[Rfam]
RNA: Eukaryotic small subunit ribosomal RNA, nucleotides 628 to 1211
Organism: Pseudolycoriella hygida
RNA sequence: AAAGUUGUUGCGGUUAAAACGUUCGUAGUUGAACUUGUGUUCCGCACGGGCAGUACCAAACAACUGGUAAAACAGUAGUGGUACCUUGUCUUACUUCCUGUCUUCGGAUUGGGAAAUGUGCGUGGACGUAUUAUCGGCGUGUUCGCUCUAGCAGCGUUCACAUCAGCCCAUCGCAGUGCUCUUAAACAAGUGUUGCUGUGGGCCGAUACAAAUUACUUUGAACAAAUUAGAGUGCUUAAAGCAGGCUUGUAAUGCCUGAAUAUUUUGUGCAUGGAAUAAUGGAAUAGGACAUCUGUUCUACUUUCAUUGGUUUUUUAGACCAAGAUGUAAUGAUUAAUGGAAGCAGUUGGGGGCAUUAGUAUUACAACGCGAGAGGUGAAAUUCUUAGACCGUUGUAAGACUAACUAAAGCGAAAGCAUUUGCCAAAGAUGUUUUCAUUUAAUCAAGAACGAAAGUUAGAGGUUCGAAGGCGAUCAGAUACCGCCCUAGUUCUAACCAUAAACGAUGCCAGCUAGCAAUUGGAUGUAGCUACUUCUAUGGCUCAUUCAGUCGCUUCUCGGGAAACCAAAGCUUUUGGGCUCCGG
Numbered sequence: 001a002a003a004g005u006u007g008u009u010g011c012g013g014u015u016a017a018a019a020c021g022u023u024c025g026u027a028g029u030u031g032a033a034c035u036u037g038u039g040u041u042c043c044g045c046a047c048g049g050g051c052a053g054u055a056c057c058a059a060a061c062a063a064c065u066g067g068u069a070a071a072a073c074a075g076u077a078g079u080g081g082u083a084c085c086u087u088g089u090c091u092u093a094c095u096u097c098c099u100g101u102c103u104u105c106g107g108a109u110u111g112g113g114a115a116a117u118g119u120g121c122g123u124g125g126a127c128g129u130a131u132u133a134u135c136g137g138c139g140u141g142u143u144c145g146c147u148c149u150a151g152c153a154g155c156g157u158u159c160a161c162a163u164c165a166g167c168c169c170a171u172c173g174c175a176g177u178g179c180u181c182u183u184a185a186a187c188a189a190g191u192g193u194u195g196c197u198g199u200g201g202g203c204c205g206a207u208a209c210a211a212a213u214u215a216c217u218u219u220g221a222a223c224a225a226a227u228u229a230g231a232g233u234g235c236u237u238a239a240a241g242c243a244g245g246c247u248u249g250u251a252a253u254g255c256c257u258g259a260a261u262a263u264u265u266u267g268u269g270c271a272u273g274g275a276a277u278a279a280u281g282g283a284a285u286a287g288g289a290c291a292u293c294u295g296u297u298c299u300a301c302u303u304u305c306a307u308u309g310g311u312u313u314u315u316u317a318g319a320c321c322a323a324g325a326u327g328u329a330a331u332g333a334u335u336a337a338u339g340g341a342a343g344c345a346g347u348u349g350g351g352g353g354c355a356u357u358a359g360u361a362u363u364a365c366a367a368c369g370c371g372a373g374a375g376g377u378g379a380a381a382u383u384c385u386u387a388g389a390c391c392g393u394u395g396u397a398a399g400a401c402u403a404a405c406u407a408a409a410g411c412g413a414a415a416g417c418a419u420u421u422g423c424c425a426a427a428g429a430u431g432u433u434u435u436c437a438u439u440u441a442a443u444c445a446a447g448a449a450c451g452a453a454a455g456u457u458a459g460a461g462g463u464u465c466g467a468a469g470g471c472g473a474u475c476a477g478a479u480a481c482c483g484c485c486c487u488a489g490u491u492c493u494a495a496c497c498a499u500a501a502a503c504g505a506u507g508c509c510a511g512c513u514a515g516c517a518a519u520u521g522g523a524u525g526u527a528g529c530u531a532c533u534u535c536u537a538u539g540g541c542u543c544a545u546u547c548a549g550u551c552g553c554u555u556c557u558c559g560g561g562a563a564a565c566c567a568a569a570g571c572u573u574u575u576g577g578g579c580u581c582c583g584g
Stems, first nucleotide, its partner, number of pairs: 011583003019580001021450004028443003340436004344431002347428002352424004358402002362398008373384003410417002455496006465489001469485004507579003510572003514554003519549007528541003559566002